BsrG: a 267-nucleotide RNA sequence from Paenibacillus dendritiformis. Rfam links the family to the GO terms toxin activity and autolysis. A search with the family's covariance model found it, with a score of 73 bits. The family's consensus secondary structure was predicted with WAR. On this family, see Saito et al., Gene 2008: "Novel small RNA-encoding genes in the intergenic regions of Bacillus subtilis". By type it is a small RNA. Rfam 15.1 lists 614 matches to the family in 343 species. NCBI's taxonomy places the organism under Bacteria, Bacillota, Caryophanales, Paenibacillus, Paenibacillus dendritiformis.
[Rfam]
RNA sequence: GCAAUAGAAUGGCUUUAUGGGCGGUCGGCUAAUCUCCCGGAAGGGAGGUGAUGCCAGUGAGCGUAUACGAAGCGCUAUCCGUUAUGUUCCAAUUUGGACUUUGGAUAUUCGCGUUACUGACGUUUGUCGUGACGCUGCUGAUAUACCUGCACACAAAAAAAUAGGCCGCCCCCAAGCUAAGGUCACGGCCUAUUCAGGUAUUACCUUGGUUGUAAGCCACCGCCUUUGAAGCGGCUAUUGCGAAAGAGUCGUGUUGCAGCACGGCUC
Numbered sequence: 001g002c003a004a005u006a007g008a009a010u011g012g013c014u015u016u017a018u019g020g021g022c023g024g025u026c027g028g029c030u031a032a033u034c035u036c037c038c039g040g041a042a043g044g045g046a047g048g049u050g051a052u053g054c055c056a057g058u059g060a061g062c063g064u065a066u067a068c069g070a071a072g073c074g075c076u077a078u079c080c081g082u083u084a085u086g087u088u089c090c091a092a093u094u095u096g097g098a099c100u101u102u103g104g105a106u107a108u109u110c111g112c113g114u115u116a117c118u119g120a121c122g123u124u125u126g127u128c129g130u131g132a133c134g135c136u137g138c139u140g141a142u143a144u145a146c147c148u149g150c151a152c153a154c155a156a157a158a159a160a161a162u163a164g165g166c167c168g169c170c171c172c173c174a175a176g177c178u179a180a181g182g183u184c185a186c187g188g189c190c191u192a193u194u195c196a197g198g199u200a201u202u203a204c205c206u207u208g209g210u211u212g213u214a215a216g217c218c219a220c221c222g223c224c225u226u227u228g229a230a231g232c233g234g235c236u237a238u239u240g241c242g243a244a245a246g247a248g249u250c251g252u253g254u255u256g257c258a259g260c261a262c263g264g265c266u267c
Stems, first nucleotide, its partner, number of pairs: 001241005007235001010219006019171003023166001025164001030051001032049001034047005060136005072087003097128003186197001188195001220234004246267009